RNA sequence: AUUGUGCGACAAACUAUGUUCAGAUUGAUGUGUUGUGAAUUUUUAUCAUCACUGGGCAAAUGUUUGUCGCAUGAA
Numbered sequence: 001a002u003u004g005u006g007c008g009a010c011a012a013a014c015u016a017u018g019u020u021c022a023g024a025u026u027g028a029u030g031u032g033u034u035g036u037g038a039a040u041u042u043u044u045a046u047c048a049u050c051a052c053u054g055g056g057c058a059a060a061u062g063u064u065u066g067u068c069g070c071a072u073g074a075a
Base pairs, nucleotide, nucleotide: 005071006070007069008068009067010066011065012064013063014062017058018057019056021054022053023052
RNA: mir-3 microRNA precursor family
Organism: Chironomus riparius